[Rfam]
Background:
Rfam assigns this 361-nucleotide part of an RNA from Nanohaloarchaea archaeon H01 to the family "Archaeal large subunit ribosomal RNA". On this family, see Yusupov et al., Science 2001: "Crystal structure of the ribosome at 5.5 A resolution". Its Rfam clan is "LSU clan". Taxonomically the source falls in Candidatus Nanohaloarchaea (Archaea, Methanobacteriati, Methanobacteriota).
RNA sequence: CGGGUAUAAACUCGGCUUAGGGAAUUCGGCAAGUUAGCCCCGUACGUUCGCAAGAUGGGGUACCUAUCGUCUCGAUACGAUAGGUUUCAAUAACUAGGCCUGCUCGACUGUUUACUAAAAACAUAGCCGACUGCUAGUCCGAAAGGAUUUGUAUAGUCGGCGACUCUUGCCCAGUGCCAGCACCUGAAACCUCCGUUCAGGGAGAAGAAGGGCUGGUAAACGGCGGCGGUAACUAUGACCGUCUUAAGGUAGCGUAGUCCCUUGCCAACUAAUUGUUGGCCCGCAUCAAUAGAGCAACGAGGUAGGCACUGUCCCAAGCCGUGGCCCGGUGAACCCACCGUACCGGCGCAUAGGCCGGUGA
Numbered sequence: 001c002g003g004g005u006a007u008a009a010a011c012u013c014g015g016c017u018u019a020g021g022g023a024a025u026u027c028g029g030c031a032a033g034u035u036a037g038c039c040c041c042g043u044a045c046g047u048u049c050g051c052a053a054g055a056u057g058g059g060g061u062a063c064c065u066a067u068c069g070u071c072u073c074g075a076u077a078c079g080a081u082a083g084g085u086u087u088c089a090a091u092a093a094c095u096a097g098g099c100c101u102g103c104u105c106g107a108c109u110g111u112u113u114a115c116u117a118a119a120a121a122c123a124u125a126g127c128c129g130a131c132u133g134c135u136a137g138u139c140c141g142a143a144a145g146g147a148u149u150u151g152u153a154u155a156g157u158c159g160g161c162g163a164c165u166c167u168u169g170c171c172c173a174g175u176g177c178c179a180g181c182a183c184c185u186g187a188a189a190c191c192u193c194c195g196u197u198c199a200g201g202g203a204g205a206a207g208a209a210g211g212g213c214u215g216g217u218a219a220a221c222g223g224c225g226g227c228g229g230u231a232a233c234u235a236u237g238a239c240c241g242u243c244u245u246a247a248g249g250u251a252g253c254g255u256a257g258u259c260c261c262u263u264g265c266c267a268a269c270u271a272a273u274u275g276u277u278g279g280c281c282c283g284c285a286u287c288a289a290u291a292g293a294g295c296a297a298c299g300a301g302g303u304a305g306g307c308a309c310u311g312u313c314c315c316a317a318g319c320c321g322u323g324g325c326c327c328g329g330u331g332a333a334c335c336c337a338c339c340g341u342a343c344c345g346g347c348g349c350a351u352a353g354g355c356c357g358g359u360g361a
Stems, first nucleotide, its partner, number of pairs: 001328004011323001013321006020314003037061005046051001062085009086090001098307007105299002109123003126161008134151001137148004164294004169224003174221002176217005183212003191204004225243006244248001264280006342359005